[Rfam]
RNA sequence: AAUUGAAGAGGCGAUGGAGUUCGCCGUAAUUGCCUUUGAGCUGAUGACUCCUACCGGUAU
Dot-bracket structure: .........[[[[..((((((]]]]......((......))....)))))).........

The family of this 60-nucleotide RNA sequence from Anoxybacillus sp. B7M1 is "Fluoride riboswitch aptamer (crcB RNA motif)".
The source organism's lineage runs through Bacteria, Bacillota, Bacilli, Caryophanales and Anoxybacillus.
Pairs were carried over by alignment from the consensus structure, which is taken from published work.
Rfam 15.1 lists 2,293 matches to the family in 1,982 species.
A search with the family's covariance model found it, with a score of 52 bits.